[Rfam]
RNA sequence: AUCAGGCCGCCCCGCGCGGCCAGGCUGGCGCGCCCUAUGCGGGCGGCGAAUCCGGUCCGACGCCCGUCGAUAACCUGGCGUCACG
Numbered sequence: 001a002u003c004a005g006g007c008c009g010c011c012c013c014g015c016g017c018g019g020c021c022a023g024g025c026u027g028g029c030g031c032g033c034c035c036u037a038u039g040c041g042g043g044c045g046g047c048g049a050a051u052c053c054g055g056u057c058c059g060a061c062g063c064c065c066g067u068c069g070a071u072a073a074c075c076u077g078g079c080g081u082c083a084c085g
Stems, first nucleotide, its partner, number of pairs: 005021006023057006029048003032044004059082006
RNA: nhaA-II RNA